[Rfam]
RNA: MIR8622 microRNA precursor family
Organism: Ectocarpus siliculosus
RNA sequence: CCGAAAUCUGCGCCGGAACCAAGCGGCAUCCAACAUUUGUCACAGCCGUGCACACCGCCGCGGACUCCAAUCUCCUGAACUGUGCGCUUACAGCAGGAGCUCAUGCCACGAGCUACUGCGGACAACCCUCCGUUGAGGGGUUUACGGUCCGUGGCGGUGUGCACGGCUGUGACAAAUAUUGGAUGCCGCUUGGUUCCGGCGCAGAUUUCGG
Numbered sequence: 001c002c003g004a005a006a007u008c009u010g011c012g013c014c015g016g017a018a019c020c021a022a023g024c025g026g027c028a029u030c031c032a033a034c035a036u037u038u039g040u041c042a043c044a045g046c047c048g049u050g051c052a053c054a055c056c057g058c059c060g061c062g063g064a065c066u067c068c069a070a071u072c073u074c075c076u077g078a079a080c081u082g083u084g085c086g087c088u089u090a091c092a093g094c095a096g097g098a099g100c101u102c103a104u105g106c107c108a109c110g111a112g113c114u115a116c117u118g119c120g121g122a123c124a125a126c127c128c129u130c131c132g133u134u135g136a137g138g139g140g141u142u143u144a145c146g147g148u149c150c151g152u153g154g155c156g157g158u159g160u161g162c163a164c165g166g167c168u169g170u171g172a173c174a175a176a177u178a179u180u181g182g183a184u185g186c187c188g189c190u191u192g193g194u195u196c197c198g199g200c201g202c203a204g205a206u207u208u209c210g211g
Base pairs, nucleotide, nucleotide: 001211002210003209004208005207006206007205008204009203010202011201012200013199014198015197016196017195018194019193020192021191022190023189024188025187026186027185028184029183030182031181032180033179035177036176037175038174039173040172041171043169044168045167046166047165048164049163050162051161052160053159055157056156057155058154059153060152061151063149064148065147066146069143070142072140074138075137076136078134079133080132084128086126091121093119094118095117096116098114099113100112101111